[Rfam]
RNA sequence: UAUAAAAGUGUCGUUAAUGACCAGACAGGCAGGGGAUUUAUACCCUGUACUGAAUGGUCAUUCGACGACCUGACUUGUAUGAGCAAGUAAGGCAUUUGCCUGGAUUGCGAAUACGGGCAGCGAUGUCGAGAGUGCAUAGCACGAAGACAUCGGCUUUUAUA
Number, nucleotide and partner (000 for none) at each position: 001u161002a160003u159004a158005a157006a156007a000008g000009u000010g069011u068012c067013g066014u000015u000016a062017a061018u060019g059020a058021c057022c056023a055024g000025a000026c052027a051028g050029g000030c000031a000032g045033g044034g043035g000036a041037u000038u000039u000040a000041u036042a000043c034044c033045c032046u000047g000048u000049a000050c028051u027052g026053a000054a000055u023056g022057g021058u020059c019060a018061u017062u016063c000064g000065a000066c013067g012068a011069c010070c000071u000072g000073a000074c117075u116076u115077g114078u113079a112080u111081g000082a000083g108084c107085a106086a105087g000088u000089a000090a101091g100092g099093c098094a000095u000096u000097u000098g093099c092100c091101u090102g000103g000104a000105u086106u085107g084108c083109g000110a000111a080112u079113a078114c077115g076116g075117g074118c000119a000120g000121c152122g151123a150124u149125g148126u147127c146128g000129a000130g000131a000132g142133u141134g140135c139136a000137u000138a000139g135140c134141a133142c132143g000144a000145a000146g127147a126148c125149a124150u123151c122152g121153g000154c000155u000156u006157u005158u004159a003160u002161a001
A member of the RNA family "Clostridiales-1 RNA" from Clostridiales bacterium CHKCI001, 161 nucleotides long. Rfam classes the family as a small RNA.